[Rfam]
RNA sequence: UGGGCAAAACAGACAGUCGCCGCGCAUUGCGUAAAGCGUGCGGGGAGGAAAGUCCGGGCUCCGCAGAGCAGAAUGCCGGCUAACGGCCGGGCGCGGUAACGCGACGGAAAGUGGAACAGAAAGCAAUACCGCCGAUGGCUGCUUUUAGGCAGCACAGGUAAGGGUGAAAAGGUGCGGUAAGAGCGCACCGUGCACUUGGUAACAAGGCGCAGCAGGCUAAACCCCAUUCGGAGCAAGACCAAACAGAACACGAUGACGCUGCUCGCCGAGUGUUCGGGUAGGUUGCUGGAGCGUAUCAGCAAUGGUACGCCUAGAGGAAUGACUGUCCGCGACAGAACCCGGCUUAUCGUUUAGCCCAUAUG
Numbered sequence: 001u002g003g004g005c006a007a008a009a010c011a012g013a014c015a016g017u018c019g020c021c022g023c024g025c026a027u028u029g030c031g032u033a034a035a036g037c038g039u040g041c042g043g044g045g046a047g048g049a050a051a052g053u054c055c056g057g058g059c060u061c062c063g064c065a066g067a068g069c070a071g072a073a074u075g076c077c078g079g080c081u082a083a084c085g086g087c088c089g090g091g092c093g094c095g096g097u098a099a100c101g102c103g104a105c106g107g108a109a110a111g112u113g114g115a116a117c118a119g120a121a122a123g124c125a126a127u128a129c130c131g132c133c134g135a136u137g138g139c140u141g142c143u144u145u146u147a148g149g150c151a152g153c154a155c156a157g158g159u160a161a162g163g164g165u166g167a168a169a170a171g172g173u174g175c176g177g178u179a180a181g182a183g184c185g186c187a188c189c190g191u192g193c194a195c196u197u198g199g200u201a202a203c204a205a206g207g208c209g210c211a212g213c214a215g216g217c218u219a220a221a222c223c224c225c226a227u228u229c230g231g232a233g234c235a236a237g238a239c240c241a242a243a244c245a246g247a248a249c250a251c252g253a254u255g256a257c258g259c260u261g262c263u264c265g266c267c268g269a270g271u272g273u274u275c276g277g278g279u280a281g282g283u284u285g286c287u288g289g290a291g292c293g294u295a296u297c298a299g300c301a302a303u304g305g306u307a308c309g310c311c312u313a314g315a316g317g318a319a320u321g322a323c324u325g326u327c328c329g330c331g332a333c334a335g336a337a338c339c340c341g342g343c344u345u346a347u348c349g350u351u352u353a354g355c356c357c358a359u360a361u362g
Stems, first nucleotide, its partner, number of pairs: 001358005007352004011347001012327007020045002023042005050345003054342005059233004066264004071229005076090005091105001092103004106224002111222002113218002129163002131159003138153005171189006190213001191211003195207001196205003237284004246275006258266002291310008
RNA: Bacterial RNase P class A